[Rfam]
RNA sequence: UAGGCGAGGGGGCUGGGGGCUGUCGGGCUCGUACCCGAGGAAGUUCCGCCCACCGCACCGGGGCCGCGGUGCCGCAAGGCACCUCCCGAGAGGGAGGGCAACGGCACAGAAACGACACGUCCCUCGGGGGAUGUGGAUGAAAGCGGAGAAGGCUCCUGGCGACAGGAGCCGAGCUAACCCGCAGACAAUCCCGAGGGGAGCGGUGAAACGGCCGUCCCGCGGGGUGCAAGGCCGAGUUAGGGCCAAUGAGUUCCCGGUGUGAGGCCCGUGGUAGGCCGCUUAGUCGAAUGCCCCCGCAGGUACAGAAGGCGGGCUAUAGCCCCCUCGCCUA
Numbered sequence: 001u002a003g004g005c006g007a008g009g010g011g012g013c014u015g016g017g018g019g020c021u022g023u024c025g026g027g028c029u030c031g032u033a034c035c036c037g038a039g040g041a042a043g044u045u046c047c048g049c050c051c052a053c054c055g056c057a058c059c060g061g062g063g064c065c066g067c068g069g070u071g072c073c074g075c076a077a078g079g080c081a082c083c084u085c086c087c088g089a090g091a092g093g094g095a096g097g098g099c100a101a102c103g104g105c106a107c108a109g110a111a112a113c114g115a116c117a118c119g120u121c122c123c124u125c126g127g128g129g130g131a132u133g134u135g136g137a138u139g140a141a142a143g144c145g146g147a148g149a150a151g152g153c154u155c156c157u158g159g160c161g162a163c164a165g166g167a168g169c170c171g172a173g174c175u176a177a178c179c180c181g182c183a184g185a186c187a188a189u190c191c192c193g194a195g196g197g198g199a200g201c202g203g204u205g206a207a208a209c210g211g212c213c214g215u216c217c218c219g220c221g222g223g224g225u226g227c228a229a230g231g232c233c234g235a236g237u238u239a240g241g242g243c244c245a246a247u248g249a250g251u252u253c254c255c256g257g258u259g260u261g262a263g264g265c266c267c268g269u270g271g272u273a274g275g276c277c278g279c280u281u282a283g284u285c286g287a288a289u290g291c292c293c294c295c296g297c298a299g300g301u302a303c304a305g306a307a308g309g310c311g312g313g314c315u316a317u318a319g320c321c322c323c324c325u326c327g328c329c330u331a
Stems, first nucleotide, its partner, number of pairs: 004328003008324007015295006024037004042315003046312005051226004056259006064222005069082005083096005097217002102214004118202003121197008144171002230277004240267005
Dot-bracket structure: ...(((.(((((((((((((...((((......))))....[[[.[[[[[((((.[[[[[[..((((((((((....)))))(((((....)))))((...((((............(((((((((((...............((........................))..................))))))))..)))........)))).)))))))))))...((((......(((((.........]]]]]]...)))))......))))............))))))............]]]]]]]]..))))))).)))...